[Rfam]
The record is a 92-nucleotide RNA sequence from Acholeplasma brassicae, which matches "THF (Tetrahydrofolate) riboswitch aptamer" in Rfam.
RNA sequence: UACAGAGUAAUAAGAAAGCGUUAAGUGACUAAUCAUGGGAUGUCGGAUUAGUACGAACACUAAGGUGGCGGUUUUCUUGUGCGUCCGCUGUA
Numbered sequence: 001u002a003c004a005g006a007g008u009a010a011u012a013a014g015a016a017a018g019c020g021u022u023a024a025g026u027g028a029c030u031a032a033u034c035a036u037g038g039g040a041u042g043u044c045g046g047a048u049u050a051g052u053a054c055g056a057a058c059a060c061u062a063a064g065g066u067g068g069c070g071g072u073u074u075u076c077u078u079g080u081g082c083g084u085c086c087g088c089u090g091u092a
Base pairs, nucleotide, nucleotide: 001092002091003090004089005088010080011079012078013077014076015075016074017073018072019070020069021068025054026053028052029051030050031049032048033047034046038086039085040084041083042082058067059066060065
Taxonomically the source falls in Acholeplasma (Bacteria, Bacillati, Mollicutes, Acholeplasmataceae).
Rfam's curators write: Tetrahydrofolate (THF) riboswitch was first reported for Ames et al. as an RNA motif in 5' untranslated (5'-UTR)regions of folate transport and biosynthesis genes in Firmicutes genomes.
A search with the family's covariance model found it, with a score of 71 bits.